[Rfam]
Description: A member of the RNA family "traJ-II RNA" from Nitrosomonas sp. Nm84, 102 nucleotides long. The family has 47 seed sequences and 174 matches in Rfam 15.1. The organism belongs to Nitrosomonas, within Bacteria.
RNA sequence: GGGCAGGAUAUGUGAUGUUAGCUAACAAGUAAACUUGUCAACCAACAUCACAAGGAUCUUAUUCGCACGGUGUGCUCAACGAUAAUCCUGCUCUGCGAGGCA
Numbered sequence: 001g002g003g004c005a006g007g008a009u010a011u012g013u014g015a016u017g018u019u020a021g022c023u024a025a026c027a028a029g030u031a032a033a034c035u036u037g038u039c040a041a042c043c044a045a046c047a048u049c050a051c052a053a054g055g056a057u058c059u060u061a062u063u064c065g066c067a068c069g070g071u072g073u074g075c076u077c078a079a080c081g082a083u084a085a086u087c088c089u090g091c092u093c094u095g096c097g098a099g100g101c102a
Stems, first nucleotide, its partner, number of pairs: 001093009012051006019044001021042001025038005056083003065075004